RNA sequence: CCAGCCAGGUGCGGCGUGGCCUCUAUCCGGUAGGGCCCCUGACGUACUUCCCCAACGCCAGGUGCUUCCACCGGAUGGGGACCACGCCGCACACGAUGCAGGUG
Numbered sequence: 001c002c003a004g005c006c007a008g009g010u011g012c013g014g015c016g017u018g019g020c021c022u023c024u025a026u027c028c029g030g031u032a033g034g035g036c037c038c039c040u041g042a043c044g045u046a047c048u049u050c051c052c053c054a055a056c057g058c059c060a061g062g063u064g065c066u067u068c069c070a071c072c073g074g075a076u077g078g079g080g081a082c083c084a085c086g087c088c089g090c091a092c093a094c095g096a097u098g099c100a101g102g103u104g
Stems, first nucleotide, its partner, number of pairs: 010091007018083002021080011033068002035065002038062004043057003
RNA: mraW RNA
Organism: Lolliginicoccus lacisalsi